A member of the RNA family "S4-Clostridia ribosomal protein leader", 50 nucleotides long. For this family Rfam cites "Discovery of 20 novel ribosomal leader candidates in bacteria and archaea" (Eckert and Weinberg, BMC Microbiol, 2020). Clan: Ribosomal Protein S4 Leader clan. By type it is a cis-regulatory leader.

RNA sequence: GAAAGGUCGCGCGCGGGCGCGGCUGGGUGACUAUGCGCACCCCAGUUAGG
Numbered sequence: 001g002a003a004a005g006g007u008c009g010c011g012c013g014c015g016g017g018c019g020c021g022g023c024u025g026g027g028u029g030a031c032u033a034u035g036c037g038c039a040c041c042c043c044a045g046u047u048a049g050g
Stems, first nucleotide, its partner, number of pairs: 005024008025042005